The family of this 263-nucleotide sequence from Sneathia vaginalis is "Bacterial large signal recognition particle RNA". The match comes from Rfam's covariance-model search (111 bits). The family's RNA type in Rfam is non-coding RNA gene. Taxonomically the source falls in Sneathia (Bacteria, Fusobacteriati, Fusobacteriales, Leptotrichiaceae). The signal recognition particle (SRP) is a universally conserved ribonucleoprotein involved in the co-translational targeting of proteins to membranes. Pairs were carried over by alignment from the consensus structure, which is taken from published work.
RNA sequence: UCAUACAAACUGGGGAGCUAGCGGUGCCCUGAAUCCACAAUCCGCUUUAGUGGAAGUCAUAUUAAAUUUGAGGGAGACUUAGGUAUUACGCCAUAUAUUAAGGUGUUGAGAGUGUAGUCUUAUUUGGUAGAAAUUAGGCGAAUUAUGUCAGGUUGGGAACGAAGCAGCAUUAAGUCUAGAUUUCUAGGUUUAUAAGGUAGCUAUUACUUGAGCUAAGAUAUGUGAAACGGGUGUUUGGGUUGUUUCGAUUAUUUAAUGUAUGA
Dot-bracket structure: (((((((.(((((((.(((...))).))))...(((((...........))))))))....((((((....((((((((((((((...((.((((((....(((.....((((((((((((((.(..(((((.((((((.....((((....(((....)))....))))...))))))..))))).)...)))))...)))).)))))..)))....))))))...))..)))))))))).))))....)))))))))))))